[Rfam]
RNA: mir-6 microRNA precursor family
Organism: Drosophila albomicans
Nucleotides: 072
Stems, first nucleotide, its partner, number of pairs: 004069002007066007016057008025048004
Number, partner (000 for none) and nucleotide at each position: 001000a002000a003000g004069u005068a006000g007066a008065g009064g010063g011062a012061a013060u014000a015000g016057u017056c018055g019054c020053u021052g022051u023050g024000c025048u026047g027046u028045a029000u030000a031000u032000u033000c034000a035000a036000a037000g038000c039000a040000c041000u042000c043000u044000c045028u046027a047026u048025a049000u050023c051022a052021c053020a054019g055018u056017g057016g058000c059000u060013g061012u062011u063010c064009u065008u066007u067000u068005u069004g070000u071000a072000u